Shown here is a 371-nucleotide RNA sequence from Heterocephalus glaber, a member of the family "Small Cajal body-specific RNA 2". The family has 20 seed sequences and 612 matches in Rfam 15.1. Taxonomically the source falls in Heterocephalus (Eukaryota, Bilateria, Vertebrata, Rodentia). The literature on the family includes a 2004 paper in Curr Biol by Tycowski et al., "Guide RNAs with 5' caps and novel box C/D snoRNA-like domains for modification of snRNAs in metazoa". It is annotated as a small Cajal body RNA.
[Rfam]
RNA sequence: GAUCCCAGCACUGACAGACAAAGCCUGUGGGUUGUUGGUGCAACCGGGCAAGGUGCGUGUGGGCCAAGUGUAUGAAUGGACGCGUGAGUGGGCGUGCAAGGUGAGCCAGUGCUCCCCCACCCCUCCCCCAUCUGCACCUUGAUAUUUGACUGGGUCAUGACUCUAGCCCCACCAGGCUGCCCCAAAAGGAAAAGCUCCCCUCCGCAGAUCCCCCUUCUCAGGGAUGCUGUUCAGUGAGGCCCUGAGGGUGCCGGCUUGUGGACGCCUCUCCUGAGGUCCCAGAGCUGGUCCUGUGGGCACAGUGCCCGGAAGUGAUGAAUUGAUCAGAUAGAGAAGGCUGGGCCUGUCUUACUGAAGUGAUUCUGAUCCGA
Numbered sequence: 001g002a003u004c005c006c007a008g009c010a011c012u013g014a015c016a017g018a019c020a021a022a023g024c025c026u027g028u029g030g031g032u033u034g035u036u037g038g039u040g041c042a043a044c045c046g047g048g049c050a051a052g053g054u055g056c057g058u059g060u061g062g063g064c065c066a067a068g069u070g071u072a073u074g075a076a077u078g079g080a081c082g083c084g085u086g087a088g089u090g091g092g093c094g095u096g097c098a099a100g101g102u103g104a105g106c107c108a109g110u111g112c113u114c115c116c117c118c119a120c121c122c123c124u125c126c127c128c129c130a131u132c133u134g135c136a137c138c139u140u141g142a143u144a145u146u147u148g149a150c151u152g153g154g155u156c157a158u159g160a161c162u163c164u165a166g167c168c169c170c171a172c173c174a175g176g177c178u179g180c181c182c183c184a185a186a187a188g189g190a191a192a193a194g195c196u197c198c199c200c201u202c203c204g205c206a207g208a209u210c211c212c213c214c215u216u217c218u219c220a221g222g223g224a225u226g227c228u229g230u231u232c233a234g235u236g237a238g239g240c241c242c243u244g245a246g247g248g249u250g251c252c253g254g255c256u257u258g259u260g261g262a263c264g265c266c267u268c269u270c271c272u273g274a275g276g277u278c279c280c281a282g283a284g285c286u287g288g289u290c291c292u293g294u295g296g297g298c299a300c301a302g303u304g305c306c307c308g309g310a311a312g313u314g315a316u317g318a319a320u321u322g323a324u325c326a327g328a329u330a331g332a333g334a335a336g337g338c339u340g341g342g343c344c345u346g347u348c349u350u351a352c353u354g355a356a357g358u359g360a361u362u363c364u365g366a367u368c369c370g371a
Stems, first nucleotide, its partner, number of pairs: 037121002042058001045057002048054001084114001086112001089109001091107003145193003151184003156179002159177001162176003166172001216276008226265002231262002234259003239255003243250001284303004289297003307370004317363006336344002